[Rfam]
RNA sequence: GGCUGGACACGGCAACCUAAAGUUGCCGCUUCAGCUGUUCCCCUCUGGAGGUUUGACCUUCACACCUCGGGCCUGGAGUUUUCUCCCGGCCCUCUUUU
Numbered sequence: 001g002g003c004u005g006g007a008c009a010c011g012g013c014a015a016c017c018u019a020a021a022g023u024u025g026c027c028g029c030u031u032c033a034g035c036u037g038u039u040c041c042c043c044u045c046u047g048g049a050g051g052u053u054u055g056a057c058c059u060u061c062a063c064a065c066c067u068c069g070g071g072c073c074u075g076g077a078g079u080u081u082u083c084u085c086c087c088g089g090c091c092c093u094c095u096u097u098u
Base pairs, nucleotide, nucleotide: 001036002035003034004033005032007030012026013025014024015023046062047061048060049059050058051057052056069093070092071091073089074088075086076085077084078083
Description: Rfam assigns this 98-nucleotide sequence from Pseudorhizobium banfieldiae to the family "Alphaproteobacterial ar15". A reference for the family is Caswell et al. (2012), "Identification of two small regulatory RNAs linked to virulence in Brucella abortus 2308", Mol Microbiol. Rfam links the family to the GO term protein binding. The source organism's lineage runs through Bacteria, Pseudomonadati, Pseudomonadota, Hyphomicrobiales and Pseudorhizobium. Pairs were carried over by alignment from the consensus structure.